The record is a 111-nucleotide RNA sequence from Musa balbisiana, which matches "Plastid-psbA-1 3UTR RNA" in Rfam. Rfam's curators write: Plastid psbA-1 is a non-coding RNA (ncRNA) present in plastids. It was identified in inverted repeat sequences in the 3 prime untranslate region (3UTR) of photosystem II quinone-binding protein (psbA). The family is grouped with related families in Rfam's "Plastid-psbA 3UTR RNA clan". The match comes from Rfam's covariance-model search (57 bits). The source organism's lineage runs through Eukaryota, Streptophytina, Embryophyta, Mesangiospermae and Musa.

RNA sequence: GUCAAGUUCAUCUACAAAUGGAUAAGAUUUUUGUCUUAGUGUAUACGAAAUGUCUGAAAAACCCCAGUACAAACCCCAUGUCUUGCUUAGAAGACAGGGGUUUGCUAUUGU
Numbered sequence: 001g002u003c004a005a006g007u008u009c010a011u012c013u014a015c016a017a018a019u020g021g022a023u024a025a026g027a028u029u030u031u032u033g034u035c036u037u038a039g040u041g042u043a044u045a046c047g048a049a050a051u052g053u054c055u056g057a058a059a060a061a062c063c064c065c066a067g068u069a070c071a072a073a074c075c076c077c078a079u080g081u082c083u084u085g086c087u088u089a090g091a092a093g094a095c096a097g098g099g100g101u102u103u104g105c106u107a108u109u110g111u
Stems, first nucleotide, its partner, number of pairs: 007022005065110005070104004075099003080095005